[Rfam]
RNA sequence: UGGGGAACAUGAUGAAAGUAAUUUACGGGUGAUGAUCAACAUCAAGUGAUCAAGAAUCUACUCGCUACGUUCUUUCUGAUUCUUCU
Numbered sequence: 001u002g003g004g005g006a007a008c009a010u011g012a013u014g015a016a017a018g019u020a021a022u023u024u025a026c027g028g029g030u031g032a033u034g035a036u037c038a039a040c041a042u043c044a045a046g047u048g049a050u051c052a053a054g055a056a057u058c059u060a061c062u063c064g065c066u067a068c069g070u071u072c073u074u075u076c077u078g079a080u081u082c083u084u085c086u
Stems, first nucleotide, its partner, number of pairs: 004083004
RNA: Small nucleolar RNA R32/R81/Z41